[Rfam]
mir-8799 microRNA precursor family: a 95-nucleotide RNA from Canis lupus. Lineage of the source: Eukaryota > Eumetazoa > Dipnotetrapodomorpha > Caniformia > Canis lupus. Rfam 15.1 lists 20,638 matches to the family in 5 species. Clan: mir-8791 microRNA precursor clan. A search with the family's covariance model found it, with a score of 50 bits.
RNA sequence: GGGUGGAGCGCUGGAUCUCAGGCUGCAUCCCCCAGUGCCCUGGGCUGCGGGGCCUGCGCCACUGGAAUUGUGCUCCUGGGGCUGCGCAGCCCCCU
Numbered sequence: 001g002g003g004u005g006g007a008g009c010g011c012u013g014g015a016u017c018u019c020a021g022g023c024u025g026c027a028u029c030c031c032c033c034a035g036u037g038c039c040c041u042g043g044g045c046u047g048c049g050g051g052g053c054c055u056g057c058g059c060c061a062c063u064g065g066a067a068u069u070g071u072g073c074u075c076c077u078g079g080g081g082c083u084g085c086g087c088a089g090c091c092c093c094c095u
Base pairs, nucleotide, nucleotide: 001095002094003093005091006090010087011086012084013083014082017079018078021075022074024072025071026070027069028066029065032064035059036058037057038056042054044053045052046051